[Rfam]
RNA: Alphaproteobacterial sRNA ar35
Organism: Aliirhizobium cellulosilyticum
RNA sequence: AUGACCUCUCGAAGGCUCCGAAGUUCGAUUACGACAAGAUGAAGAAGUAAAAGGUCUAGCACUGCCCGGCGACCACGGAUGUAAUGGCGCUGGGCUGCAUUCGAGAAGAAGGUCGGUGCGUAAACUCGUACCGGCCUUUUUGUUU
Numbered sequence: 001a002u003g004a005c006c007u008c009u010c011g012a013a014g015g016c017u018c019c020g021a022a023g024u025u026c027g028a029u030u031a032c033g034a035c036a037a038g039a040u041g042a043a044g045a046a047g048u049a050a051a052a053g054g055u056c057u058a059g060c061a062c063u064g065c066c067c068g069g070c071g072a073c074c075a076c077g078g079a080u081g082u083a084a085u086g087g088c089g090c091u092g093g094g095c096u097g098c099a100u101u102c103g104a105g106a107a108g109a110a111g112g113u114c115g116g117u118g119c120g121u122a123a124a125c126u127c128g129u130a131c132c133g134g135c136c137u138u139u140u141u142g143u144u145u
Stems, first nucleotide, its partner, number of pairs: 003056004007051001009049001059102001061100001064095004070089002073087003103144002106141011118129003